[Rfam]
RNA sequence: CCUGCUAUGCGACUAGCAGUAGCCUAGGGAGACAUGCGUCGCUGGUAACGGCGGGGUGUGAAGCUCUCCUGACAAUGUAGCCCCCGCAAGGGUGUCGUCGCGCCGUGAGGCGCAAUGGCAGAAGACUCCGAGCAGCACGGGUCGAGGAG
Numbered sequence: 001c002c003u004g005c006u007a008u009g010c011g012a013c014u015a016g017c018a019g020u021a022g023c024c025u026a027g028g029g030a031g032a033c034a035u036g037c038g039u040c041g042c043u044g045g046u047a048a049c050g051g052c053g054g055g056g057u058g059u060g061a062a063g064c065u066c067u068c069c070u071g072a073c074a075a076u077g078u079a080g081c082c083c084c085c086g087c088a089a090g091g092g093u094g095u096c097g098u099c100g101c102g103c104c105g106u107g108a109g110g111c112g113c114a115a116u117g118g119c120a121g122a123a124g125a126c127u128c129c130g131a132g133c134a135g136c137a138c139g140g141g142u143c144g145a146g147g148a149g
Stems, first nucleotide, its partner, number of pairs: 002019006028069005033060005039054006083092003093120004103110002124143002127141004
RNA: Group II catalytic intron D1-D4-7